[Rfam]
RNA sequence: CCAAAGGCCCUUUUCAGGGCUACCCACUUUUUCUACGAAGGAGCUG
Numbered sequence: 001c002c003a004a005a006g007g008c009c010c011u012u013u014u015c016a017g018g019g020c021u022a023c024c025c026a027c028u029u030u031u032u033c034u035a036c037g038a039a040g041g042a043g044c045u046g
Base pairs, nucleotide, nucleotide: 006021007020008019009018010017011016
A member of the RNA family "Histone 3' UTR stem-loop" from Hipposideros armiger, 46 nucleotides long. The family's consensus secondary structure is taken from published work.